[Rfam]
RNA sequence: UUGCCCAUCGGGGCCACGGAUACCUGCUUUUAAUUUU
Numbered sequence: 001u002u003g004c005c006c007a008u009c010g011g012g013g014c015c016a017c018g019g020a021u022a023c024c025u026g027c028u029u030u031u032a033a034u035u036u037u
Base pairs, nucleotide, nucleotide: 003014004013005012006011017026018025019024

Record summary: Shown here is a 37-nucleotide sequence, a member of the family "XIST RNA A repeat". The literature on the family includes a 2011 paper in RNA by Duszczyk et al., "The Xist RNA A-repeat comprises a novel AUCG tetraloop fold and a platform for multimerization". The base pairs follow the family's consensus structure, which was predicted with CMfinder.